[Rfam]
This 273-nucleotide sequence from Turnera subulata belongs to the Rfam family "Early nodulin 40".
The family has 35 seed sequences and 341 matches in Rfam 15.1.
Lineage of the source: Eukaryota > Viridiplantae > rosids > Passifloraceae > Turnera.
A reference for the family is Gultyaev and Roussis (2007), "Identification of conserved secondary structures and expansion segments in enod40 RNAs reveals new enod40 homologues in plants", Nucleic Acids Res.

RNA sequence: AUGGGUAUCUUUUGUCAAGAAACUAUCCAUGUGCCUUAGAAAAGGCAGGGAGGGGGCCUCUGUCCUCCUCCAAAAUUUCAACAGUUUGCCUGUGCUUUGGCCAUUGGCUAUGUGUGCUAGCUAGGUAGCCCCACCUGUAGCUAACACCACUUUGCAUGAAGAAAUUGCAAGAUACAUAUAUAUCCUCCAAGACUAGCACUGCAUGCUUUUGGCUAAUGCUAGGCGAACCGGCAAGUCACAGAACGGCAACAGGCUCGCUCUCUCUCGAGUCUU
Numbered sequence: 001a002u003g004g005g006u007a008u009c010u011u012u013u014g015u016c017a018a019g020a021a022a023c024u025a026u027c028c029a030u031g032u033g034c035c036u037u038a039g040a041a042a043a044g045g046c047a048g049g050g051a052g053g054g055g056g057c058c059u060c061u062g063u064c065c066u067c068c069u070c071c072a073a074a075a076u077u078u079c080a081a082c083a084g085u086u087u088g089c090c091u092g093u094g095c096u097u098u099g100g101c102c103a104u105u106g107g108c109u110a111u112g113u114g115u116g117c118u119a120g121c122u123a124g125g126u127a128g129c130c131c132c133a134c135c136u137g138u139a140g141c142u143a144a145c146a147c148c149a150c151u152u153u154g155c156a157u158g159a160a161g162a163a164a165u166u167g168c169a170a171g172a173u174a175c176a177u178a179u180a181u182a183u184c185c186u187c188c189a190a191g192a193c194u195a196g197c198a199c200u201g202c203a204u205g206c207u208u209u210u211g212g213c214u215a216a217u218g219c220u221a222g223g224c225g226a227a228c229c230g231g232c233a234a235g236u237c238a239c240a241g242a243a244c245g246g247c248a249a250c251a252g253g254c255u256c257g258c259u260c261u262c263u264c265u266c267g268a269g270u271c272u273u
Base pairs, nucleotide, nucleotide: 049071050070084228085227086226087225088224089223102218103217104216105215106214107213108212109211110210252271253270254269255268256267